[Rfam]
RNA sequence: CUUCCUGUUUUAGUACCACCCAUCUGCUUUUUUUCAAGGUGUGUGGCUAUGCUAACAGGAUAAAGGAACUCUGUCAAGAUCUGAAGAGGUGGUUGGCUACACCCCCUCCACUUCUAUAUGAAUUGGCAGUACAUUUAUGU
Number, nucleotide and partner (000 for none) at each position: 001c000002u000003u000004c059005c058006u057007g056008u000009u000010u000011u000012a000013g000014u000015a000016c046017c045018a044019c043020c000021c000022a000023u000024c000025u000026g000027c000028u000029u000030u000031u000032u000033u000034u000035c000036a000037a000038g000039g000040u000041g000042u000043g019044u018045g017046g016047c000048u000049a000050u000051g000052c000053u000054a000055a000056c007057a006058g005059g004060a000061u000062a000063a000064a000065g000066g000067a000068a000069c000070u000071c000072u000073g127074u126075c125076a124077a000078g000079a000080u000081c000082u000083g000084a000085a000086g000087a000088g000089g000090u000091g115092g114093u000094u000095g000096g000097c000098u000099a000100c000101a000102c000103c000104c000105c000106c000107u000108c000109c000110a000111c000112u000113u000114c092115u091116a000117u000118a000119u000120g000121a000122a000123u000124u076125g075126g074127c073128a000129g000130u000131a000132c000133a000134u000135u000136u000137a000138u000139g000140u000